[Rfam]
Notes
Rfam assigns this 507-nucleotide RNA sequence from Streptomyces mashuensis to the family "Saccharopolyspora sRNA 350". A reference for the family is Liu et al. (2013), "Prediction and characterization of small non-coding RNAs related to secondary metabolites in Saccharopolyspora erythraea", PLoS One.
RNA sequence: GUGACGGCCCGGACGCCGUACGGCAUCGGCUCCGAGCGGGUCCAGGCGCCCAGGUCGAAGAACUGGCCGUCGCCGAUGACCUCCAGCAGGAUGUCGUCGCCGUACUGGCCCGUCGCCCGCUUCUCGGCGCGGCCGUGCACCAGCACCCAGAACCGGUCGGCGGCGGCGCCCUCGCAGGCCAGUUCCUCGCCGGGCCCGAAGGAGACCUCUGUGAACGCCCCGGCCAGGUGCUCCAGCACCGCGUCGUCGCUCUCCCGCAGGUACGGCAGUUCACGCAGGUCGCCGGGGAUGACGCGGGGCGUGCUGUCGUCCGUGGUGCUGAUGCGGUCGUCGCCCACGACGUAGGUGCGGCGGCGGUUCACGCGGUAGACGCCCGAGUCGAUGUCCACCCAGGGCAGCGCCCGCAGCAGGUAGCGCGGCGUGAUGCCGCGCAUCUGCGGGGCGGUCUUGGUGGCCGUGGCCAACUGCCGUGCGGCAUCCGGGCCGAGACUCAGCCGGUCGUUCAUG
Numbered sequence: 001g002u003g004a005c006g007g008c009c010c011g012g013a014c015g016c017c018g019u020a021c022g023g024c025a026u027c028g029g030c031u032c033c034g035a036g037c038g039g040g041u042c043c044a045g046g047c048g049c050c051c052a053g054g055u056c057g058a059a060g061a062a063c064u065g066g067c068c069g070u071c072g073c074c075g076a077u078g079a080c081c082u083c084c085a086g087c088a089g090g091a092u093g094u095c096g097u098c099g100c101c102g103u104a105c106u107g108g109c110c111c112g113u114c115g116c117c118c119g120c121u122u123c124u125c126g127g128c129g130c131g132g133c134c135g136u137g138c139a140c141c142a143g144c145a146c147c148c149a150g151a152a153c154c155g156g157u158c159g160g161c162g163g164c165g166g167c168g169c170c171c172u173c174g175c176a177g178g179c180c181a182g183u184u185c186c187u188c189g190c191c192g193g194g195c196c197c198g199a200a201g202g203a204g205a206c207c208u209c210u211g212u213g214a215a216c217g218c219c220c221c222g223g224c225c226a227g228g229u230g231c232u233c234c235a236g237c238a239c240c241g242c243g244u245c246g247u248c249g250c251u252c253u254c255c256c257g258c259a260g261g262u263a264c265g266g267c268a269g270u271u272c273a274c275g276c277a278g279g280u281c282g283c284c285g286g287g288g289a290u291g292a293c294g295c296g297g298g299g300c301g302u303g304c305u306g307u308c309g310u311c312c313g314u315g316g317u318g319c320u321g322a323u324g325c326g327g328u329c330g331u332c333g334c335c336c337a338c339g340a341c342g343u344a345g346g347u348g349c350g351g352c353g354g355c356g357g358u359u360c361a362c363g364c365g366g367u368a369g370a371c372g373c374c375c376g377a378g379u380c381g382a383u384g385u386c387c388a389c390c391c392a393g394g395g396c397a398g399c400g401c402c403c404g405c406a407g408c409a410g411g412u413a414g415c416g417c418g419g420c421g422u423g424a425u426g427c428c429g430c431g432c433a434u435c436u437g438c439g440g441g442g443c444g445g446u447c448u449u450g451g452u453g454g455c456c457g458u459g460g461c462c463a464a465c466u467g468c469c470g471u472g473c474g475g476c477a478u479c480c481g482g483g484c485c486g487a488g489a490c491u492c493a494g495c496c497g498g499u500c501g502u503u504c505a506u507g
Base pairs, nucleotide, nucleotide: 006390007389011387012386013385014384017381018380020328021327023325024324026322027321028320029319030318032316033315043313045311046310047309048308050306053305054304055303056301057300060239063236064235065234066233068230069229070228072116073115083108084107085106086105088103090101092099123227124226126224128222129221132218133217136214138211139210142208143207146204156197160195161194164192165191166190167189168184240297243293244292245291246290247289248288252286253285256282257281259280265272329342330341331340332339351379352378356374357373360372391431394428395427396426397425399423400422401421403418404417405416407415437476438475440473442471443470444469445468446467448464449463450462451461452460477506478505480501481500482499484498485497486496488495